[Rfam]
Qrr RNA: a 103-nucleotide sequence from Photobacterium profundum.
Rfam classes the family as a small RNA.
It is one of the family's seed sequences.
The organism belongs to Photobacterium, within Bacteria.
The base pairs follow the family's consensus structure, which is taken from published work.
Rfam links the family to the GO term quorum sensing.
From the family's description: This family represents a set of small RNAs (the Qrr RNAs) that are thought to be involved in the regulation of quorum sensing in Vibrio species. It is believed that these RNAs, guided by a protein, Hfq, can mediate the destabilisation of the quorum-sensing master regulators LuxR/HapR mRNAs.

RNA sequence: UGACUCUUAAUGUAGAGUCAACCUAGCCAACUGACGUUGUUUGUGGAAUGAAUUCACUAAAACAAUGAUGCCAACCGAAACUAUUCCGGUUGGUUUUUUUUUA
Numbered sequence: 001u002g003a004c005u006c007u008u009a010a011u012g013u014a015g016a017g018u019c020a021a022c023c024u025a026g027c028c029a030a031c032u033g034a035c036g037u038u039g040u041u042u043g044u045g046g047a048a049u050g051a052a053u054u055c056a057c058u059a060a061a062a063c064a065a066u067g068a069u070g071c072c073a074a075c076c077g078a079a080a081c082u083a084u085u086c087c088g089g090u091u092g093g094u095u096u097u098u099u100u101u102u103a
Base pairs, nucleotide, nucleotide: 001020002019003018004017005016006015037068038067039066040065043057044056045055046054047053071093072092073091074090075089076088077087